[Rfam]
RNA sequence: AAAAAUGAGCAAUAGCUUCCCUCUUGUUUUAUCAAGAGGGCGUUAUUGCUCCUUUUUAUUU
Numbered sequence: 001a002a003a004a005a006u007g008a009g010c011a012a013u014a015g016c017u018u019c020c021c022u023c024u025u026g027u028u029u030u031a032u033c034a035a036g037a038g039g040g041c042g043u044u045a046u047u048g049c050u051c052c053u054u055u056u057u058a059u060u061u
Base pairs, nucleotide, nucleotide: 001057002056003055004054005053007051008050009049010048011047012046013045014044015043016042017040018039019038022037023036024035025034026033

Shown here is a 61-nucleotide sequence from Centaurea solstitialis, a member of the family "Plastid-psbA-2 3UTR RNA". The organism belongs to Centaurea, within Eukaryota. From the family's description: Plastid psbA-2 is a non-coding RNA (ncRNA) present in plastids. It was identified in inverted repeat sequences in the 3 prime untranslate region (3UTR) of photosystem II quinone-binding protein (psbA). Pairs were carried over by alignment from the consensus structure, which was predicted with LocARNA.